[Rfam]
RNA sequence: UAACUCAAGGAGCGUUGCAGCGAAACAUCGUUUCGUCAGGCUUGGGUAAGCAGGGUGCAAAACGCCCUAUUUGGCAACGACGCUCACCUUUG
Numbered sequence: 001u002a003a004c005u006c007a008a009g010g011a012g013c014g015u016u017g018c019a020g021c022g023a024a025a026c027a028u029c030g031u032u033u034c035g036u037c038a039g040g041c042u043u044g045g046g047u048a049a050g051c052a053g054g055g056u057g058c059a060a061a062a063c064g065c066c067c068u069a070u071u072u073g074g075c076a077a078c079g080a081c082g083c084u085c086a087c088c089u090u091u092g
Stems, first nucleotide, its partner, number of pairs: 003047006021035006
SAH (S-adenosyl-L-homocysteine) riboswitch aptamer: a 92-nucleotide sequence from Polaromonas sp. CG9_12. NCBI's taxonomy places the organism under Bacteria, Pseudomonadati, Betaproteobacteria, Comamonadaceae, Polaromonas. Pairs were carried over by alignment from the consensus structure, which is taken from published work.